RNA: DUF805 RNA
RNA sequence: UUAUAAUGGAGGCCAGAGACCAUUGAAAAAAACGGAGCGUAUCCGAAAAGCUAUACGAGUAGGAAGUAA
Numbered sequence: 001u002u003a004u005a006a007u008g009g010a011g012g013c014c015a016g017a018g019a020c021c022a023u024u025g026a027a028a029a030a031a032a033c034g035g036a037g038c039g040u041a042u043c044c045g046a047a048a049a050g051c052u053a054u055a056c057g058a059g060u061a062g063g064a065a066g067u068a069a
Stems, first nucleotide, its partner, number of pairs: 006023004036052003043063002